[Rfam]
RNA sequence: GAACGUCGAUUUGGCAACCUCCUCGUGGUGACGUUCAGGCAACGGAAUAAAAUCCGGCUGAUAGCCAAAG
Numbered sequence: 001g002a003a004c005g006u007c008g009a010u011u012u013g014g015c016a017a018c019c020u021c022c023u024c025g026u027g028g029u030g031a032c033g034u035u036c037a038g039g040c041a042a043c044g045g046a047a048u049a050a051a052a053u054c055c056g057g058c059u060g061a062u063a064g065c066c067a068a069a070g
Base pairs, nucleotide, nucleotide: 001036002035003034004033005032006031007030017029018028019027043056044055045054046053

The record is a 70-nucleotide sequence from Dinothrombium tinctorium, which matches "HDV ribozyme from F. prausnitzii" in Rfam. The organism belongs to Dinothrombium, within Eukaryota.